[Rfam]
Nucleotides: 080
Base pairs, nucleotide, nucleotide: 004077006075009073011072012071017069018068019067020066021062023060024058027055028054029053030052031051032050
Number, partner (000 for none) and nucleotide at each position: 001000c002000g003000a004077c005000g006075g007000c008000c009073g010000a011072c012071c013000u014000c015000u016000g017069g018068g019067a020066c021062g022000g023060c024058c025000g026000g027055g028054u029053c030052g031051c032050g033000c034000a035000c036000u037000u038000c039000c040000a041000g042000g043000u044000c045000g046000u047000c048000g049000a050032c051031g052030c053029g054028g055027u056000c057000g058024g059000c060023g061000g062021c063000u064000a065000c066020g067019u068018c069017c070000g071012g072011g073009u074000c075006c076000g077004g078000g079000u080000g

A member of the RNA family "NoRC associated RNA, pRNA", 80 nucleotides long. Rfam classes the family as a non-coding RNA gene. Pairs were carried over by alignment from the consensus structure, which is taken from published work.